[Rfam]
RNA sequence: GCAGUCCGGGAUCGCCCCCCACCAGCGUGUUACGCCCGUGGGGGCGUUUGAC
Numbered sequence: 001g002c003a004g005u006c007c008g009g010g011a012u013c014g015c016c017c018c019c020c021a022c023c024a025g026c027g028u029g030u031u032a033c034g035c036c037c038g039u040g041g042g043g044g045c046g047u048u049u050g051a052c
Stems, first nucleotide, its partner, number of pairs: 016044007025035004
RNA: ffh sRNA